RNA sequence: CGCGGGAUAGAGUAAUUGGUAACUCGUCAGGCUCAUAAUCUGAAUGUUGUGGGUUCGAAUCCGACUCCCGCCA
Numbered sequence: 001c002g003c004g005g006g007a008u009a010g011a012g013u014a015a016u017u018g019g020u021a022a023c024u025c026g027u028c029a030g031g032c033u034c035a036u037a038a039u040c041u042g043a044a045u046g047u048u049g050u051g052g053g054u055u056c057g058a059a060u061c062c063g064a065c066u067c068c069c070g071c072c073a
Stems, first nucleotide, its partner, number of pairs: 002071006010025004027043005049065002052062002
Shown here is a 73-nucleotide RNA, a member of the family "tRNA". By type it is a transfer RNA. The base pairs follow the family's consensus structure, which is taken from published work. Rfam's curators write: Transfer RNA (tRNA) molecules are approximately 80 nucleotides in length. It is one of the family's seed sequences.